[Rfam]
RNA: small nucleolar RNA snoR137
RNA sequence: GUUGCUUUAUAAUGGUGAACUCCCUGUUAAUUUCGAUUGGUUGGGGAUGUUCAAGUUUCCAAAGCAUAGAGUAAUAUUGUUGCCAGUAUUAAACAGCACCGUGCAUAUUUGCUUGCACUGUGUUACCUGUCUCCUGGUACAUGU
Dot-bracket structure: ..((((((.......((((((((((.................))))).))))).......))))))...............(((((.(......(((.(.(((............))).).))).......).)))))......